[Rfam]
RNA sequence: CUGCAGUCAAUUAAGCUGACUGUGCUCUUUGUCUGUGGGGACCCAGUGUGCCAUGGCCUCCUCGGUACUCUAUGCAGCCUGUUGAUUGUAUGGGUUUCCAUAGGGACCUUGGAGACAGCC
Numbered sequence: 001c002u003g004c005a006g007u008c009a010a011u012u013a014a015g016c017u018g019a020c021u022g023u024g025c026u027c028u029u030u031g032u033c034u035g036u037g038g039g040g041a042c043c044c045a046g047u048g049u050g051c052c053a054u055g056g057c058c059u060c061c062u063c064g065g066u067a068c069u070c071u072a073u074g075c076a077g078c079c080u081g082u083u084g085a086u087u088g089u090a091u092g093g094g095u096u097u098c099c100a101u102a103g104g105g106a107c108c109u110u111g112g113a114g115a116c117a118g119c120c
Stems, first nucleotide, its partner, number of pairs: 003051003019047004026040003064108003076096005

The record is a 120-nucleotide RNA from Mustela putorius, which matches "Small nucleolar RNA SNORA70" in Rfam. The organism belongs to Mustela putorius, within Eukaryota. Its family is annotated with nucleolus and RNA processing in the Gene Ontology. The family's consensus secondary structure was predicted with PFOLD. snoRNA U70 seems to be exclusive to mammals and is a member of the H/ACA class of snoRNA which contain H (ANANNA) and ACA box motifs. H/ACA box snoRNAs are involved in the conversion of uridines to pseudouridines (5-ribosyluracil) a constituent of structural RNAs (transfer, ribosomal, small nuclear, and small nucleolar).